The family of this 91-nucleotide RNA from Streptomyces noursei is "che1 RNA".
RNA sequence: UGGACAGGGGGGUCUUUGCCGUUCGGCAGAGCCUGUCCGGUGAGGUUGCGCGAGAGCGUGGCCAGUGGUUGUCGCUCGGGGGUGAUCGCCG
Numbered sequence: 001u002g003g004a005c006a007g008g009g010g011g012g013u014c015u016u017u018g019c020c021g022u023u024c025g026g027c028a029g030a031g032c033c034u035g036u037c038c039g040g041u042g043a044g045g046u047u048g049c050g051c052g053a054g055a056g057c058g059u060g061g062c063c064a065g066u067g068g069u070u071g072u073c074g075c076u077c078g079g080g081g082g083u084g085a086u087c088g089c090c091g
Stems, first nucleotide, its partner, number of pairs: 001039008014031007044063008

The sequence is in the family's curated seed alignment.